[Rfam]
RNA sequence: GCCAGGGUGAGUCAGGCUGGUGCCUGGACAUGGCUUCAGUCCAUGGGGCAUGGGGACAUGCAGGGGCUCGAUUCCCCCUCUCUGGC
Numbered sequence: 001g002c003c004a005g006g007g008u009g010a011g012u013c014a015g016g017c018u019g020g021u022g023c024c025u026g027g028a029c030a031u032g033g034c035u036u037c038a039g040u041c042c043a044u045g046g047g048g049c050a051u052g053g054g055g056a057c058a059u060g061c062a063g064g065g066g067c068u069c070g071a072u073u074c075c076c077c078c079u080c081u082c083u084g085g086c
Stems, first nucleotide, its partner, number of pairs: 001086007009078001012027006029045005048061005063077004
A member of the RNA family "Selenocysteine transfer RNA" from Symbiodinium natans, 86 nucleotides long. Lineage of the source: Eukaryota > Sar > Alveolata > Suessiales > Symbiodinium. It scores 63 bits against the family's covariance model. Its family is annotated with triplet codon-amino acid adaptor activity in the Gene Ontology.